[Rfam]
RNA sequence: UGUAGGGGGGAGAGAUCGACUCGACUUUUCCUAUCAGUCAGUCUUUUUCUCUCUCCUAUA
Number, nucleotide and partner (000 for none) at each position: 001u060002g059003u058004a057005g056006g055007g054008g053009g000010g051011a050012g049013a048014g000015a046016u000017c000018g043019a042020c041021u040022c000023g000024a038025c037026u036027u000028u000029u000030c000031c000032u000033a000034u000035c000036a026037g025038u024039c000040a021041g020042u019043c018044u000045u000046u015047u000048u013049c012050u011051c010052u000053c008054u007055c006056c005057u004058a003059u002060a001
The family of this 60-nucleotide sequence from Papilio machaon is "mir-14 microRNA precursor family".
The literature on the family includes a 2009 paper in BMC Genomics by Li et al., "Direct sequencing and expression analysis of a large number of miRNAs in Aedes aegypti and a multi-species survey of novel mosquito miRNAs".
The base pairs follow the family's consensus structure, which was predicted with RNAalifold.
Its family is annotated with miRNA-mediated post-transcriptional gene silencing and RISC complex in the Gene Ontology.